Shown here is a 48-nucleotide sequence from Candidatus Sodalis pierantonii, a member of the family "Guanidine-II riboswitch aptamer (mini-ykkC)". The source organism's lineage runs through Bacteria, Pseudomonadati, Pseudomonadota, Sodalis and Candidatus Sodalis pierantonii. Simpler in structure and has fewer highly conserved nucleotide positions than the ykkC-yxkD leader. Despite this each of its two stem-loop structures directly bind free guanidine. Therefore, mini-ykkC RNA motif represents a distinct class of guanidine-sensing RNAs. Its crystal structure was also determined. Pairs were carried over by alignment from the consensus structure, which is taken from published work. It scores 41 bits against the family's covariance model.

[Rfam]
RNA sequence: CGCUCAGGACGACCUGGGCCUCCUGCCUUACCCCACGGGACGACCCGA
Numbered sequence: 001c002g003c004u005c006a007g008g009a010c011g012a013c014c015u016g017g018g019c020c021u022c023c024u025g026c027c028u029u030a031c032c033c034c035a036c037g038g039g040a041c042g043a044c045c046c047g048a
Base pairs, nucleotide, nucleotide: 002019003018004017005016006015007014008013036047037046038045039044